The record is a 117-nucleotide RNA from Parahaliea mediterranea, which matches "ALIL pseudoknot" in Rfam.
[Rfam]
RNA sequence: GGCGUAUUUUGCCCAGGCGGAGCUCGACCGCAAACCGAAGUGAUGGUGUCAUUUAUCGACGAGUAUCGGGAUGAGUACGGGGUCGAGCCGAUCUGCAGCCAGCUGCCGAUUGCCCCA
Numbered sequence: 001g002g003c004g005u006a007u008u009u010u011g012c013c014c015a016g017g018c019g020g021a022g023c024u025c026g027a028c029c030g031c032a033a034a035c036c037g038a039a040g041u042g043a044u045g046g047u048g049u050c051a052u053u054u055a056u057c058g059a060c061g062a063g064u065a066u067c068g069g070g071a072u073g074a075g076u077a078c079g080g081g082g083u084c085g086a087g088c089c090g091a092u093c094u095g096c097a098g099c100c101a102g103c104u105g106c107c108g109a110u111u112g113c114c115c116c117a
Stems, first nucleotide, its partner, number of pairs: 017031004079116004089112002092109002095106004

Rfam classes the family as a cis-regulatory element.